[Rfam]
RNA sequence: GAUAAGGCGGGUGAGAAACCUGCCCACCGAAAGACUAAGGUUUCCCGGGCGAUGUUAAUCAACCCGGGGUAAGUCGGGAGCUAAGGCGAGAUCGUUGUAAAGGCGGUGUAGCUGAUGCCAAAUCGGUUAAUAUUCCGAUACCUGCUUACAAUGCGAUGCGGGGACGAAGGUGUGACACCUCCGCCUGGAGACGGAAUACCAGGUUAAAGCUUGUAGGUAAACUGGCAGCAGGCAAAUCCACUGCUAGUGCCGAAGGUGAUAGUACUCAGAGUCUUCGGACGAUGAGACAGAGAGGGUAAACGUACUUCCGAGAAAAGCCGCUAAGCUUCAGUUGUAAGCAGCCCGUACCGCAAACCGACACAGGUAGUCGAGGAGAGUAUCCUAAGGUGCU
Dot-bracket structure: .....((((((.......))))))((((....((((..((...((((((...((.....)).))))))......((((.((...(((.(.((((((.....)))))).).)))...))...(((((........)))))..(((((((((((((...((((....((((..((....((((.((((((..........))))))((..((((...(((....((((((..((.....)).))))))..)))..))))..))...((((..............)))).....))))....))...)))).........))))...))....)))))))))))))))..)).....((......)).)))).((((.....))))..))))..

The family of this 391-nucleotide part of an RNA from Thermaurantimonas aggregans is "Bacterial large subunit ribosomal RNA".
NCBI's taxonomy places the organism under Bacteria, Pseudomonadati, Bacteroidota, Schleiferiaceae, Thermaurantimonas.